[Rfam]
RNA sequence: UCCCAGAGUCGGGGUUUUGGGGGCAAGAUGCGUUGAUGUUGGAUCCAACUGGCCCACAAAGUCCCUCUUCUGGGG
Numbered sequence: 001u002c003c004c005a006g007a008g009u010c011g012g013g014g015u016u017u018u019g020g021g022g023g024c025a026a027g028a029u030g031c032g033u034u035g036a037u038g039u040u041g042g043a044u045c046c047a048a049c050u051g052g053c054c055c056a057c058a059a060a061g062u063c064c065c066u067c068u069u070c071u072g073g074g075g
Stems, first nucleotide, its partner, number of pairs: 003073006011065003015061005021055004026050002029047002
Shown here is a 75-nucleotide sequence from Salvator merianae, a member of the family "mir-193 microRNA precursor family".
Lineage of the source: Eukaryota > Bilateria > Craniata > Amniota > Salvator.
On this family, see Linsen et al., BMC Genomics 2010: "Small RNA expression and strain specificity in the rat".
The match comes from Rfam's covariance-model search (74 bits).